The family of this 87-nucleotide sequence from Metabacillus sediminilitoris is "BsrC". Lineage of the source: Bacteria > Bacillota > Bacilli > Caryophanales > Metabacillus. A reference for the family is Saito et al. (2008), "Novel small RNA-encoding genes in the intergenic regions of Bacillus subtilis", Gene. Rfam's curators write: The 301 nucleotide sequence from Kouji Nakamura has been trimmed to a highly conserved ~85 nucleotide long core to form this family.
RNA sequence: AAACCUCAAAACAACGAAAGCCCUACCUCUCUUUCGUCCUUACGGCUCCUAGUCCGUGCCAGCGUGAAUUGAUCAUACGUAUCUAAC
Numbered sequence: 001a002a003a004c005c006u007c008a009a010a011a012c013a014a015c016g017a018a019a020g021c022c023c024u025a026c027c028u029c030u031c032u033u034u035c036g037u038c039c040u041u042a043c044g045g046c047u048c049c050u051a052g053u054c055c056g057u058g059c060c061a062g063c064g065u066g067a068a069u070u071g072a073u074c075a076u077a078c079g080u081a082u083c084u085a086a087c
Stems, first nucleotide, its partner, number of pairs: 034067003039062002041058005047052001